[Rfam]
Nucleotides: 097
Base pairs, nucleotide, nucleotide: 023087024086025085026084027083028082029081030080035078036077037076038075039074040072041071042070048068049067050066051065052064
Number, partner (000 for none) and nucleotide at each position: 001000u002000g003000c004000a005000c006000a007000a008000c009000g010000c011000c012000u013000u014000g015000a016000a017000a018000a019000c020000a021000c022000a023087c024086a025085c026084g027083u028082a029081c030080c031000g032000g033000c034000a035078c036077a037076u038075g039074g040072u041071c042070c043000c044000g045000g046000g047000u048068g049067c050066u051065g052064u053000c054000g055000g056000c057000g058000c059000g060000a061000c062000c063000g064052a065051c066050g067049g068048u069000c070042g071041g072040a073000u074039c075038c076037a077036u078035g079000g080030g081029g082028u083027g084026c085025g086024u087023g088000g089000a090000g091000g092000c093000c094000u095000a096000a097000c

Rfam assigns this 97-nucleotide RNA from Halomonas halmophila to the family "t44 RNA". From the family's description: This family consists of a number of bacterial RNA genes of between 135 and 170 bases in length. The family's RNA type in Rfam is small RNA.